[Rfam]
This 126-nucleotide RNA from Ziziphus jujuba belongs to the Rfam family "MIR408 microRNA precursor family". Lineage of the source: Eukaryota > Streptophyta > rosids > Paliureae > Ziziphus jujuba. For this family Rfam cites "Novel and stress-regulated microRNAs and other small RNAs from Arabidopsis" (Sunkar and Zhu, Plant Cell, 2004).
RNA sequence: GGGUUUGGAAAAUAAAAAGACAGGGAAGCGGCAGAGCAUGGAUGGAGCCAUCACCAGAAUGCGGAAAGCUGUUGUGGCUCUACUCAUGCACUGCCUCUUCCCUGGCUUGCCAUAUCAUAUCAUUCC
Numbered sequence: 001g002g003g004u005u006u007g008g009a010a011a012a013u014a015a016a017a018a019g020a021c022a023g024g025g026a027a028g029c030g031g032c033a034g035a036g037c038a039u040g041g042a043u044g045g046a047g048c049c050a051u052c053a054c055c056a057g058a059a060u061g062c063g064g065a066a067a068g069c070u071g072u073u074g075u076g077g078c079u080c081u082a083c084u085c086a087u088g089c090a091c092u093g094c095c096u097c098u099u100c101c102c103u104g105g106c107u108u109g110c111c112a113u114a115u116c117a118u119a120u121c122a123u124u125c126c
Stems, first nucleotide, its partner, number of pairs: 017108003021104007030095005036089006045080002